[Rfam]
RNA sequence: GAAUUUUCGAUUAACGUUAAUUAAAAUGAAAAAGUUCACAUAUUAACCUUUGGGGAG
Numbered sequence: 001g002a003a004u005u006u007u008c009g010a011u012u013a014a015c016g017u018u019a020a021u022u023a024a025a026a027u028g029a030a031a032a033a034g035u036u037c038a039c040a041u042a043u044u045a046a047c048c049u050u051u052g053g054g055g056a057g
Stems, first nucleotide, its partner, number of pairs: 016047006
The family of this 57-nucleotide sequence from Trichonephila inaurata is "nuoG RNA". It is annotated as a cis-regulatory element.